[Rfam]
RNA sequence: CAAUUUUUGUACUACACAAAAGUUCUGUUCAGCUUCUAUGUACAGCUCGUUUGUCCAGUGCAAAAAUGGU
Numbered sequence: 001c002a003a004u005u006u007u008u009g010u011a012c013u014a015c016a017c018a019a020a021a022g023u024u025c026u027g028u029u030c031a032g033c034u035u036c037u038a039u040g041u042a043c044a045g046c047u048c049g050u051u052u053g054u055c056c057a058g059u060g061c062a063a064a065a066a067u068g069g070u
Stems, first nucleotide, its partner, number of pairs: 003067010016054005022048001025045003030040001
Dot-bracket structure: ..((((((((((...(((((.(..(((..(.........)..)))..).)))))...))))))))))...

Description: The family of this 70-nucleotide RNA from Caenorhabditis japonica is "mir-239 microRNA precursor family". A search with the family's covariance model found it, with a score of 56 bits.